[Rfam]
RNA sequence: UUUGGGCGGUUAUGAACUAUGAAAUCUUCACAUAUCAGACUUCAGAGAUUUCUCUAGAAAUCCUUGGGAAGAUAAUUCUAUUGUCUGAGCUGAUA
Numbered sequence: 001u002u003u004g005g006g007c008g009g010u011u012a013u014g015a016a017c018u019a020u021g022a023a024a025u026c027u028u029c030a031c032a033u034a035u036c037a038g039a040c041u042u043c044a045g046a047g048a049u050u051u052c053u054c055u056a057g058a059a060a061u062c063c064u065u066g067g068g069a070a071g072a073u074a075a076u077u078c079u080a081u082u083g084u085c086u087g088a089g090c091u092g093a094u095a
Base pairs, nucleotide, nucleotide: 001095003093005091006090007089047062048061049060050059
A member of the RNA family "Small nucleolar RNA R64/Z200 family" from Macleaya cordata, 95 nucleotides long.
Rfam classes the family as a C/D-box small nucleolar RNA.
NCBI's taxonomy places the organism under Eukaryota, Tracheophyta, Spermatophyta, Papaveraceae, Macleaya.